Shown here is a 441-nucleotide part of an RNA from Suillus discolor, a member of the family "Eukaryotic large subunit ribosomal RNA". Pairs were carried over by alignment from the consensus structure, which is taken from published work. Lineage of the source: Eukaryota > Fungi > Agaricomycotina > Suillineae > Suillus. It scores 3372 bits against the family's covariance model. Its family is annotated with ribosome and structural constituent of ribosome in the Gene Ontology.
RNA sequence: GGUAGUAGCAAAUAUUCAAGUGAGAUCCUUGAAGACUGAAGUGGAGAAAGGUUCCGUGGUAACAGCAGUUGGACACGGGUCAGUCGAUCCUAAGAGAUAGGGAAACUCCGUUUUAAAGUCGGACGAUUAUUCGUCCCGCCUUGUCGAAAGGGAAUCCGGUUAAUAUUCCGGAACCAGAAUGUGGAAUUUUGAGCGGCAACGCAAAUGAACUUGGAGACGCCGGCGAGAGCCCCGGGAAGAGUUUUCUUUUCUCCUUAACAGCCUAAAACCCUGAAAUCGAUUUGUUCGGAGCUAGGGUUCGAUGGUUGGUAGAGCGCGACGCUUUCGUCGCGUCCGGUGCGCUCUCGACGGUCCUUGAAAAUCCAAGGGAAUGUAUUGAUUCUCACGUCUGGUCGUACUCAUAACCGCAGCAGGUCUCCAAGGUGAACAGCCUCUAGUUGA
Numbered sequence: 001g002g003u004a005g006u007a008g009c010a011a012a013u014a015u016u017c018a019a020g021u022g023a024g025a026u027c028c029u030u031g032a033a034g035a036c037u038g039a040a041g042u043g044g045a046g047a048a049a050g051g052u053u054c055c056g057u058g059g060u061a062a063c064a065g066c067a068g069u070u071g072g073a074c075a076c077g078g079g080u081c082a083g084u085c086g087a088u089c090c091u092a093a094g095a096g097a098u099a100g101g102g103a104a105a106c107u108c109c110g111u112u113u114u115a116a117a118g119u120c121g122g123a124c125g126a127u128u129a130u131u132c133g134u135c136c137c138g139c140c141u142u143g144u145c146g147a148a149a150g151g152g153a154a155u156c157c158g159g160u161u162a163a164u165a166u167u168c169c170g171g172a173a174c175c176a177g178a179a180u181g182u183g184g185a186a187u188u189u190u191g192a193g194c195g196g197c198a199a200c201g202c203a204a205a206u207g208a209a210c211u212u213g214g215a216g217a218c219g220c221c222g223g224c225g226a227g228a229g230c231c232c233c234g235g236g237a238a239g240a241g242u243u244u245u246c247u248u249u250u251c252u253c254c255u256u257a258a259c260a261g262c263c264u265a266a267a268a269c270c271c272u273g274a275a276a277u278c279g280a281u282u283u284g285u286u287c288g289g290a291g292c293u294a295g296g297g298u299u300c301g302a303u304g305g306u307u308g309g310u311a312g313a314g315c316g317c318g319a320c321g322c323u324u325u326c327g328u329c330g331c332g333u334c335c336g337g338u339g340c341g342c343u344c345u346c347g348a349c350g351g352u353c354c355u356u357g358a359a360a361a362u363c364c365a366a367g368g369g370a371a372u373g374u375a376u377u378g379a380u381u382c383u384c385a386c387g388u389c390u391g392g393u394c395g396u397a398c399u400c401a402u403a404a405c406c407g408c409a410g411c412a413g414g415u416c417u418c419c420a421a422g423g424u425g426a427a428c429a430g431c432c433u434c435u436a437g438u439u440g441a
Stems, first nucleotide, its partner, number of pairs: 015033006034439004043419004049399002054078005063071002085395003089151002094145002096112003100109003120138003155172005175391004180387005185381002193202003210367006219352004224347007232337003235255002238252003259308005268298006277289004315332007405414002421433004